[Rfam]
RNA sequence: GUGGCACUCAAACUGUGGGGGCACUUUCUGUGGCACUGAAGAAAGUGCCGCCAUUUUUUGAGUGUUAC
Numbered sequence: 001g002u003g004g005c006a007c008u009c010a011a012a013c014u015g016u017g018g019g020g021g022c023a024c025u026u027u028c029u030g031u032g033g034c035a036c037u038g039a040a041g042a043a044a045g046u047g048c049c050g051c052c053a054u055u056u057u058u059u060g061a062g063u064g065u066u067a068c
Base pairs, nucleotide, nucleotide: 004065005064006063007062008061009060010059011058012057015054016053017052018051020049021048022047023046024045025044026043027042028041